Background:
Shown here is a 393-nucleotide sequence from Phenylobacterium kunshanense, a member of the family "Bacterial RNase P class A". Rfam links the family to the GO terms tRNA processing, dimeric ribonuclease P complex and ribonuclease P activity.
[Rfam]
RNA sequence: UCAGACGGCCGGGCGGUCGCGGCGCCUCCAUUUCGGUGGAGGUGUCGAGGAAAGUCCGGGCUCCACGACGACAUGGCGGCGGGUAACGCCCGCCGGGGGUGACCCCAGGGAUAGCGCCACAGAGAGCAGACCGCCGGCGCCUCGGCGUCGGUAAGGGUGAAAGGGUGCGGUAAGAGCGCACCGGGUCGCUGGUAACAGAGGCCGCAUGGCAAGCCCCGCCAGGAGCAAGACCGAAUAGGGAUCCCGCGCCUUCGCAAGGAGGUAGGGCCGUCGCCGGCCCGAGGGAUCCGGGUAGGUCGCGAGAACCGGCCCGCGAGGGUCGGUCCAGAGGAAUGACCGCCGCGUUCCCGCAAGGGGGCGGCACAGAACCCGGCUUACAGGCCGUCUGAUCCC
Numbered sequence: 001u002c003a004g005a006c007g008g009c010c011g012g013g014c015g016g017u018c019g020c021g022g023c024g025c026c027u028c029c030a031u032u033u034c035g036g037u038g039g040a041g042g043u044g045u046c047g048a049g050g051a052a053a054g055u056c057c058g059g060g061c062u063c064c065a066c067g068a069c070g071a072c073a074u075g076g077c078g079g080c081g082g083g084u085a086a087c088g089c090c091c092g093c094c095g096g097g098g099g100u101g102a103c104c105c106c107a108g109g110g111a112u113a114g115c116g117c118c119a120c121a122g123a124g125a126g127c128a129g130a131c132c133g134c135c136g137g138c139g140c141c142u143c144g145g146c147g148u149c150g151g152u153a154a155g156g157g158u159g160a161a162a163g164g165g166u167g168c169g170g171u172a173a174g175a176g177c178g179c180a181c182c183g184g185g186u187c188g189c190u191g192g193u194a195a196c197a198g199a200g201g202c203c204g205c206a207u208g209g210c211a212a213g214c215c216c217c218g219c220c221a222g223g224a225g226c227a228a229g230a231c232c233g234a235a236u237a238g239g240g241a242u243c244c245c246g247c248g249c250c251u252u253c254g255c256a257a258g259g260a261g262g263u264a265g266g267g268c269c270g271u272c273g274c275c276g277g278c279c280c281g282a283g284g285g286a287u288c289c290g291g292g293u294a295g296g297u298c299g300c301g302a303g304a305a306c307c308g309g310c311c312c313g314c315g316a317g318g319g320u321c322g323g324u325c326c327a328g329a330g331g332a333a334u335g336a337c338c339g340c341c342g343c344g345u346u347c348c349c350g351c352a353a354g355g356g357g358g359c360g361g362c363a364c365a366g367a368a369c370c371c372g373g374c375u376u377a378c379a380g381g382c383c384g385u386c387u388g389a390u391c392c393c
Stems, first nucleotide, its partner, number of pairs: 001389010011378001012341007020047011052376003056373005061225004074221005079093005094108001095106004109216002114214002116210003131156002133152008164182006183205001184203004189198003229298004239289006265280005305324008